[Rfam]
RNA sequence: AAUCUGUCAUGGAUAACCUAGUGGAAGGUCAGCCGCUAAGUCAGUAACCUUGCUGCGGCAUUUGCCAGCGGGAAAGGUGCCCGGUACGAAUCCUGGGGUCGUCGUUGUACUCGUGCGAGUAAUCCACGACGCUACAAGGCGUUAAGCAAUGGAAGUGACCCUUGAGGGAAGCAAUUCUGCAGAGACACUUCCACCCUGGGAUGGCGUCGCCGGAGGACACCUUCCCGUUACAGGGAAAUUGGCUGUUUGGCUGGACAACCGCAACUCUCUU
Number, nucleotide and partner (000 for none) at each position: 001a000002a014003u013004c012005u000006g000007u000008c000009a000010u000011g000012g004013a003014u002015a000016a000017c000018c000019u264020a000021g262022u261023g260024g259025a000026a000027g256028g000029u254030c253031a252032g251033c250034c249035g000036c000037u000038a000039a244040g243041u242042c241043a240044g239045u238046a000047a000048c235049c234050u233051u000052g000053c000054u000055g000056c000057g066058g065059c064060a000061u000062u000063u000064g059065c058066c057067a000068g000069c000070g226071g225072g224073a000074a223075a222076g221077g220078u219079g218080c000081c213082c212083g211084g210085u209086a207087c206088g205089a000090a202091u201092c200093c199094u198095g197096g196097g195098g194099u000100c141101g000102u139103c138104g000105u000106u136107g135108u134109a133110c000111u129112c128113g127114u126115g125116c000117g124118a123119g000120u000121a000122a000123u118124c117125c115126a114127c113128g112129a111130c000131g000132c000133u109134a108135c107136a106137a000138g103139g102140c000141g100142u146143u000144a000145a000146g142147c000148a000149a000150u193151g192152g191153a190154a189155g188156u187157g000158a000159c000160c000161c184162u183163u182164g000165a000166g000167g000168g177169a176170a175171g000172c000173a000174a000175u170176u169177c168178u000179g000180c000181a000182g163183a162184g161185a000186c000187a156188c155189u154190u153191c152192c151193a150194c098195c097196c096197u095198g094199g093200g092201a091202u090203g000204g000205c088206g087207u086208c000209g085210c084211c083212g082213g081214a000215g000216g000217a000218c079219a078220c077221c076222u075223u074224c072225c071226c070227g000228u000229u000230a000231c000232a000233g050234g049235g048236a000237a000238a045239u044240u043241g042242g041243c040244u039245g000246u000247u000248u000249g034250g033251c032252u031253g030254g029255a000256c027257a000258a000259c024260c023261g022262c021263a000264a019265c000266u000267c000268u000269c000270u000271u000